[Rfam]
The record is a 74-nucleotide sequence from Medicago truncatula, which matches "MIR5272 microRNA precursor family" in Rfam. The source organism's lineage runs through Eukaryota, Embryophyta, Tracheophyta, fabids and Medicago. Rfam links the family to the GO terms miRNA-mediated post-transcriptional gene silencing and RISC complex.
RNA sequence: UUUGAGGUGAAUUGAUUUAUGUUUGGAUAAAAUUAUUUAAAAGCGAUUCUUAUGAGUUGAUGUUGUUUGAAUAA
Numbered sequence: 001u002u003u004g005a006g007g008u009g010a011a012u013u014g015a016u017u018u019a020u021g022u023u024u025g026g027a028u029a030a031a032a033u034u035a036u037u038u039a040a041a042a043g044c045g046a047u048u049c050u051u052a053u054g055a056g057u058u059g060a061u062g063u064u065g066u067u068u069g070a071a072u073a074a
Stems, first nucleotide, its partner, number of pairs: 011061008021053002025049004033042002